[Rfam]
RNA: FMN riboswitch aptamer (RFN element)
RNA sequence: GAUGGUCUUUGGGGCUAGGUGAGAAAGCAUUGCUUUCAAUUCCUGACCGGCGGUUAUAGUCCGCUACCCUCAGUAAUGAGGCUGAACCGAUGAGAUUUCGGUACCGACAGUACAGUCUGGAUGGGAAAAGACGCAU
Numbered sequence: 001g002a003u004g005g006u007c008u009u010u011g012g013g014g015c016u017a018g019g020u021g022a023g024a025a026a027g028c029a030u031u032g033c034u035u036u037c038a039a040u041u042c043c044u045g046a047c048c049g050g051c052g053g054u055u056a057u058a059g060u061c062c063g064c065u066a067c068c069c070u071c072a073g074u075a076a077u078g079a080g081g082c083u084g085a086a087c088c089g090a091u092g093a094g095a096u097u098u099c100g101g102u103a104c105c106g107a108c109a110g111u112a113c114a115g116u117c118u119g120g121a122u123g124g125g126a127a128a129a130g131a132c133g134c135a136u
Base pairs, nucleotide, nucleotide: 005132006131007130008129009128010127017044018043019042046116047115048106049105050064051063052062053061059104060103068081069080086102087101088100089099090098108119109118110117